[Rfam]
RNA sequence: CAACGAUAAUGGCAAACGUAUCGAAAGAUAGGGACGCAAAGCCACGGGUCUAACGUGUAAAAACUAUGACAGCCGGGUUACCGAA
Dot-bracket structure: ...........((...(.((((....)))).)...))..((((.((((((....((......))...)))..)))))))......
RNA: c-di-GMP-I riboswitch aptamer
Organism: Aneurinibacillus migulanus